[Rfam]
RNA sequence: CUAUGUUGGUGGCGCUCUUGGACUCAAUCUUGGCGGGUGAACGUGUACUUCUAAUAUCGAAAGUAUAUACCUUCAAGCCCGCUCACUCAGCGGGCUUUUUCAU
Numbered sequence: 001c002u003a004u005g006u007u008g009g010u011g012g013c014g015c016u017c018u019u020g021g022a023c024u025c026a027a028u029c030u031u032g033g034c035g036g037g038u039g040a041a042c043g044u045g046u047a048c049u050u051c052u053a054a055u056a057u058c059g060a061a062a063g064u065a066u067a068u069a070c071c072u073u074c075a076a077g078c079c080c081g082c083u084c085a086c087u088c089a090g091c092g093g094g095c096u097u098u099u100u101c102a103u
Base pairs, nucleotide, nucleotide: 009042010041015035017033018032020030021029022028076096077095078094079093080092081091082090
RNA: Tryptophan operon leader